[Rfam]
RNA sequence: GGAGCAGGUCACCUUAUCGCCCCCGAUAGCUAUCGGGGGAGGAAAGUCCGGACACCAUAAUGCGGCAUAGCGGGUAACGCCCGUCUUCCCAUACCAUAUGGGAAAGGACCAGUGCAACAGAAAGUAUGUACAGAUAAUGCUGUAGUGAAAUCAGGUAAACUCUAUGCGGUGAAACGCCACAUAUACCGGCGUUAUGAGGGUUGCAUGCCCAAGCCGAAGGGUAGGCGGAUGGAGCUUUUGGGUGACCAAAAGCCUAGAUAAAUGAUAAGGGUCCGUAUUAACGGAAACAGAAUUCGGCUUAUGGCCUGCUUUUUUA
Numbered sequence: 001g002g003a004g005c006a007g008g009u010c011a012c013c014u015u016a017u018c019g020c021c022c023c024c025g026a027u028a029g030c031u032a033u034c035g036g037g038g039g040a041g042g043a044a045a046g047u048c049c050g051g052a053c054a055c056c057a058u059a060a061u062g063c064g065g066c067a068u069a070g071c072g073g074g075u076a077a078c079g080c081c082c083g084u085c086u087u088c089c090c091a092u093a094c095c096a097u098a099u100g101g102g103a104a105a106g107g108a109c110c111a112g113u114g115c116a117a118c119a120g121a122a123a124g125u126a127u128g129u130a131c132a133g134a135u136a137a138u139g140c141u142g143u144a145g146u147g148a149a150a151u152c153a154g155g156u157a158a159a160c161u162c163u164a165u166g167c168g169g170u171g172a173a174a175c176g177c178c179a180c181a182u183a184u185a186c187c188g189g190c191g192u193u194a195u196g197a198g199g200g201u202u203g204c205a206u207g208c209c210c211a212a213g214c215c216g217a218a219g220g221g222u223a224g225g226c227g228g229a230u231g232g233a234g235c236u237u238u239u240g241g242g243u244g245a246c247c248a249a250a251a252g253c254c255u256a257g258a259u260a261a262a263u264g265a266u267a268a269g270g271g272u273c274c275g276u277a278u279u280a281a282c283g284g285a286a287a288c289a290g291a292a293u294u295c296g297g298c299u300u301a302u303g304g305c306c307u308g309c310u311u312u313u314u315u316a
Base pairs, nucleotide, nucleotide: 001312002311003310004309005308006307007306008305009304010303011302012270013269014268015267016266017265018264020039021038022037023036024035025034026033027032044300045299046298048297049296050295051294052293053171054170055169056168060206061205062204063203065167066166067165068164069163070084071083072082073081074080085106086104087103088102089101090100091099092098093097107162108161112160113159114156115155130143131142132141133140175227176226177225178224187216188215189214190213198210199209200208201207234253235252236251237250238249239248240247241246
Rfam assigns this 316-nucleotide RNA from Ulvibacterium marinum to the family "Bacterial RNase P class A". A search with the family's covariance model found it, with a score of 190 bits. Rfam's curators write: Ribonuclease P (RNase P) is a ubiquitous endoribonuclease, found in archaea, bacteria and eukarya as well as chloroplasts and mitochondria. Rfam links the family to the GO terms tRNA processing, dimeric ribonuclease P complex and ribonuclease P activity. NCBI's taxonomy places the organism under Bacteria, Pseudomonadati, Bacteroidota, Flavobacteriales, Ulvibacterium.